[Rfam]
RNA: c-di-GMP-I riboswitch aptamer
RNA sequence: CACUGACCACGGCAAACCGCCCGAAAGAGCGGGACGCAAAGCCAUGGGGGCUAAAGCAAAACGCCAUGCCAGCCCGGCCGCCAGU
Numbered sequence: 001c002a003c004u005g006a007c008c009a010c011g012g013c014a015a016a017c018c019g020c021c022c023g024a025a026a027g028a029g030c031g032g033g034a035c036g037c038a039a040a041g042c043c044a045u046g047g048g049g050g051c052u053a054a055a056g057c058a059a060a061a062c063g064c065c066a067u068g069c070c071a072g073c074c075c076g077g078c079c080g081c082c083a084g085u
Stems, first nucleotide, its partner, number of pairs: 012037002017032004022027001041078003046075003049070003056064002